[Rfam]
Nucleotides: 246
Base pairs, nucleotide, nucleotide: 007102008101015097016096017095018094026084027083028082029081030080037073038072039071048070049069050068051067052066053065105135106134107133108132137149138148139147192205193204194203195202196201210243211242212241213240221239222238223237224236225235
Number, partner (000 for none) and nucleotide at each position: 001000a002000a003000a004000a005000a006000a007102a008101c009000u010000a011000u012000g013000a014000a015097g016096a017095g018094a019000a020000g021000a022000g023000u024000a025000a026084g027083u028082a029081u030080a031000g032000g033000a034000a035000a036000c037073a038072a039071u040000u041000u042000u043000a044000g045000c046000g047000a048070g049069u050068c051067g052066g053065u054000g055000g056000u057000g058000g059000u060000g061000g062000a063000a064000g065053a066052c067051c068050g069049a070048u071039a072038u073037u074000a075000a076000g077000c078000c079000c080030u081029a082028u083027a084026u085000g086000g087000a088000a089000g090000a091000a092000c093000a094018u095017c096016u097015c098000u099000g100000a101008g102007u103000u104000u105135c106134u107133a108132a109000c110000c111000g112000a113000a114000a115000g116000c117000u118000u119000a120000u121000u122000g123000c124000a125000a126000g127000u128000a129000g130000a131000c132108u133107u134106a135105g136000a137149c138148g139147g140000a141000a142000c143000c144000a145000c146000a147139c148138c149137g150000u151000u152000a153000u154000u155000u156000g157000g158000u159000g160000g161000a162000c163000a164000g165000u166000a167000u168000a169000a170000u171000u172000g173000u174000u175000g176000u177000a178000c179000u180000g181000a182000u183000a184000u185000g186000g187000a188000g189000c190000c191000g192205g193204u194203c195202a196201u197000g198000u199000a200000u201196a202195u203194g204193a205192c206000a207000a208000u209000u210243a211242g212241g213240g214000u215000g216000g217000u218000a219000c220000c221239g222238c223237g224236a225235a226000g227000a228000u229000a230000u231000a232000g233000c234000c235225u236224u237223c238222g239221u240213c241212c242211c243210u244000u245000u246000a